[Rfam]
RNA sequence: CUGUGGUGCAUUGUAGUUGCAUUGCAUGUGUUUCGGCCGAGUGCAAUGUGUCUGCAGUGCAACACAG
Numbered sequence: 001c002u003g004u005g006g007u008g009c010a011u012u013g014u015a016g017u018u019g020c021a022u023u024g025c026a027u028g029u030g031u032u033u034c035g036g037c038c039g040a041g042u043g044c045a046a047u048g049u050g051u052c053u054g055c056a057g058u059g060c061a062a063c064a065c066a067g
Stems, first nucleotide, its partner, number of pairs: 001067004006063001007061010019049001021047007

mir-33 microRNA precursor family: a 67-nucleotide RNA from Merluccius polli.
Lineage of the source: Eukaryota > Gnathostomata > Teleostomi > Acanthomorphata > Merluccius.
For this family Rfam cites "Direct sequencing and expression analysis of a large number of miRNAs in Aedes aegypti and a multi-species survey of novel mosquito miRNAs" (Li et al., BMC Genomics, 2009).
A search with the family's covariance model found it, with a score of 76 bits.